[Rfam]
RNA sequence: UGGCGCCUGAACAGGGACCUGGAAACGAGGGACUCCGUGAGGAAGAGGACGCCAAAGGACGGUCGACCGCUAACCCAGACAAAAGGAGUAAAACUCUUCCGAUCACCGCGGGAACCUGCUGCGUCUGAAUCGAAGGUAAGUGGCGCGUCCGAAAUGGGACAAGAAUUAAGUCAGCAUCAGAUCUAUGUAGGACAAUUAAAAGAGGCUUUAAAGAUACGAGGAGUAAAGGUUAAAGGUAAUGAUUUGUUUAAGUUUUUUGAUUUUGUAAAAGAUACUUGCCCUU
Numbered sequence: 001u002g003g004c005g006c007c008u009g010a011a012c013a014g015g016g017a018c019c020u021g022g023a024a025a026c027g028a029g030g031g032a033c034u035c036c037g038u039g040a041g042g043a044a045g046a047g048g049a050c051g052c053c054a055a056a057g058g059a060c061g062g063u064c065g066a067c068c069g070c071u072a073a074c075c076c077a078g079a080c081a082a083a084a085g086g087a088g089u090a091a092a093a094c095u096c097u098u099c100c101g102a103u104c105a106c107c108g109c110g111g112g113a114a115c116c117u118g119c120u121g122c123g124u125c126u127g128a129a130u131c132g133a134a135g136g137u138a139a140g141u142g143g144c145g146c147g148u149c150c151g152a153a154a155u156g157g158g159a160c161a162a163g164a165a166u167u168a169a170g171u172c173a174g175c176a177u178c179a180g181a182u183c184u185a186u187g188u189a190g191g192a193c194a195a196u197u198a199a200a201a202g203a204g205g206c207u208u209u210a211a212a213g214a215u216a217c218g219a220g221g222a223g224u225a226a227a228g229g230u231u232a233a234a235g236g237u238a239a240u241g242a243u244u245u246g247u248u249u250a251a252g253u254u255u256u257u258u259g260a261u262u263u264u265g266u267a268a269a270a271g272a273u274a275c276u277u278g279c280c281c282u283u
Base pairs, nucleotide, nucleotide: 006030007029008028036048038046093137094136095135097134098133103129104127105126107123108122109121110120111119145160148158149157150156151155167210168209169208170206171205172204217259218258219257220256221255222254223253224252227245228244229243230242231241232240268283269282271280273278
RNA: Mason-Pfizer monkey virus packaging signal